[Rfam]
RNA: Bacterial large signal recognition particle RNA
Organism: Butyricicoccus porcorum
RNA sequence: CUGCGCUAGCCGGGACGGCAGCGGUGUCCUGUACCUGCAAUCCGCUAUAGCAGGGGUGAAUCCCGGCCCGCGGGCGGCGCGUGUAUUGUUUGACCCGGAUCGGAAGGCGAUGAAGAUUCGGUCCUGCGCAACAUCGGACUGUGAACCAUGUCAGGCGGGGAACCGAGCAGCAUUAAGCAGAACCCGGUGUGUGCCGCGGGAACACCGAGUCUGAGCCGGACGGUACGGGUACCAGGUAUUACGUUUCGUUCAACGGCCGGUGCGCGG
Numbered sequence: 001c002u003g004c005g006c007u008a009g010c011c012g013g014g015a016c017g018g019c020a021g022c023g024g025u026g027u028c029c030u031g032u033a034c035c036u037g038c039a040a041u042c043c044g045c046u047a048u049a050g051c052a053g054g055g056g057u058g059a060a061u062c063c064c065g066g067c068c069c070g071c072g073g074g075c076g077g078c079g080c081g082u083g084u085a086u087u088g089u090u091u092g093a094c095c096c097g098g099a100u101c102g103g104a105a106g107g108c109g110a111u112g113a114a115g116a117u118u119c120g121g122u123c124c125u126g127c128g129c130a131a132c133a134u135c136g137g138a139c140u141g142u143g144a145a146c147c148a149u150g151u152c153a154g155g156c157g158g159g160g161a162a163c164c165g166a167g168c169a170g171c172a173u174u175a176a177g178c179a180g181a182a183c184c185c186g187g188u189g190u191g192u193g194c195c196g197c198g199g200g201a202a203c204a205c206c207g208a209g210u211c212u213g214a215g216c217c218g219g220a221c222g223g224u225a226c227g228g229g230u231a232c233c234a235g236g237u238a239u240u241a242c243g244u245u246u247c248g249u250u251c252a253a254c255g256g257c258c259g260g261u262g263c264g265c266g267g
Stems, first nucleotide, its partner, number of pairs: 001267006009057003012030006019023001034054005063260006072251005079244004083239005091231002095228003099224002103221001106217003114212009123200006129191002132189005139180004148173004156165003